Rfam assigns this 130-nucleotide RNA from Pteropus alecto to the family "Small nucleolar RNA SNORA11".
It is annotated as an H/ACA-box small nucleolar RNA.
Rfam describes the family as follows. U107 (SNORA11) is a member of the H/ACA class of snoRNAs that guide the sites of modification of uridines to pseudouridines. This snoRNA was identified by RT-PCR from blood cells and its expression confirmed by Northern blot analysis. There is no predicted target for this guide snRNA.
The family's consensus secondary structure was predicted with RNAalifold.
The family has 35 seed sequences and 2,014 matches in Rfam 15.1.
The match comes from Rfam's covariance-model search (93 bits).
Lineage of the source: Eukaryota > Craniata > Vertebrata > Theria > Pteropus.
RNA sequence: AAAAUUUUCCAACUUCAGGGGGCCUGAAGAAAUGGCUCCUCUGAUGACAACACACCCAACAGGAAUCCGGGGUCAUUGUGACAAGGGGUACCAAACCUGUGGCCUUCUUAUGAACAAACAACCUACAUGU
Numbered sequence: 001a002a003a004a005u006u007u008u009c010c011a012a013c014u015u016c017a018g019g020g021g022g023c024c025u026g027a028a029g030a031a032a033u034g035g036c037u038c039c040u041c042u043g044a045u046g047a048c049a050a051c052a053c054a055c056c057c058a059a060c061a062g063g064a065a066u067c068c069g070g071g072g073u074c075a076u077u078g079u080g081a082c083a084a085g086g087g088g089u090a091c092c093a094a095a096c097c098u099g100u101g102g103c104c105u106u107c108u109u110a111u112g113a114a115c116a117a118a119c120a121a122c123c124u125a126c127a128u129g130u
Stems, first nucleotide, its partner, number of pairs: 005054001007052001013046001015044007022036003070123002073120001077116003082112002085105003089101003